RNA sequence: GAAGGAAGGGCCCUUCGGAGUCGGCCUGCAGGGGCAGGCUCCAAACCACCACGAGCUGCGCGGGUAAAGAGUCCGCGUGGUGAGCGUCGUUGGAAAAAGGCAGAGUUCGACUCUGUCAGGU
Numbered sequence: 001g002a003a004g005g006a007a008g009g010g011c012c013c014u015u016c017g018g019a020g021u022c023g024g025c026c027u028g029c030a031g032g033g034g035c036a037g038g039c040u041c042c043a044a045a046c047c048a049c050c051a052c053g054a055g056c057u058g059c060g061c062g063g064g065u066a067a068a069g070a071g072u073c074c075g076c077g078u079g080g081u082g083a084g085c086g087u088c089g090u091u092g093g094a095a096a097a098a099g100g101c102a103g104a105g106u107u108c109g110a111c112u113c114u115g116u117c118a119g120g121u
Stems, first nucleotide, its partner, number of pairs: 001016005017042006024035004047120001049093002051090004055081002058078003062074004099117006